Annotation: The record is a 163-nucleotide RNA from Streptomyces sp. NP160, which matches "c-di-AMP riboswitch aptamer (ydaO/yuaA leader)" in Rfam. The base pairs follow the family's consensus structure. The match comes from Rfam's covariance-model search (62 bits). Taxonomically the source falls in Streptomyces (Bacteria, Bacillati, Actinomycetota, Streptomycetaceae).
[Rfam]
RNA sequence: GUUCGAGGUCCGCAGAUCCUUGUGGCAGGGGACGGGGGAACCACUUCCGGGCGCGCUGCUCUUCGGAGCGUCGUCGCGUCCUCGGGGUGAAGCUCGCCUAGCGAGCCGGGGGACCUCACCUCCCGAACCCGACAGCUCACCUCGCAGGCGUCGGAGAGGCCCA
Numbered sequence: 001g002u003u004c005g006a007g008g009u010c011c012g013c014a015g016a017u018c019c020u021u022g023u024g025g026c027a028g029g030g031g032a033c034g035g036g037g038g039a040a041c042c043a044c045u046u047c048c049g050g051g052c053g054c055g056c057u058g059c060u061c062u063u064c065g066g067a068g069c070g071u072c073g074u075c076g077c078g079u080c081c082u083c084g085g086g087g088u089g090a091a092g093c094u095c096g097c098c099u100a101g102c103g104a105g106c107c108g109g110g111g112g113a114c115c116u117c118a119c120c121u122c123c124c125g126a127a128c129c130c131g132a133c134a135g136c137u138c139a140c141c142u143c144g145c146a147g148g149c150g151u152c153g154g155a156g157a158g159g160c161c162c163a
Stems, first nucleotide, its partner, number of pairs: 011150003018031003033144005042084001085130003093105004108124004